Small nucleolar RNA R64/Z200 family: a 94-nucleotide RNA sequence from Vigna angularis.
For this family Rfam cites "Experimental RNomics: identification of 140 candidates for small non-messenger RNAs in the plant Arabidopsis thaliana" (Marker et al., Curr Biol, 2002).

RNA sequence: AUUCUGCUAUGAUGAUUUAAGAAUAAAAUUCACAUGUCAGACUUCAGAGAUUUUAAUAAUCAAUGAGAAUGACAAUUCUUUUCCUGAGCUGAUU
Numbered sequence: 001a002u003u004c005u006g007c008u009a010u011g012a013u014g015a016u017u018u019a020a021g022a023a024u025a026a027a028a029u030u031c032a033c034a035u036g037u038c039a040g041a042c043u044u045c046a047g048a049g050a051u052u053u054u055a056a057u058a059a060u061c062a063a064u065g066a067g068a069a070u071g072a073c074a075a076u077u078c079u080u081u082u083c084c085u086g087a088g089c090u091g092a093u094u
Base pairs, nucleotide, nucleotide: 001094003092004091006089007088049061050060051059052058

NCBI's taxonomy places the organism under Eukaryota, Streptophyta, Streptophytina, fabids, Vigna angularis.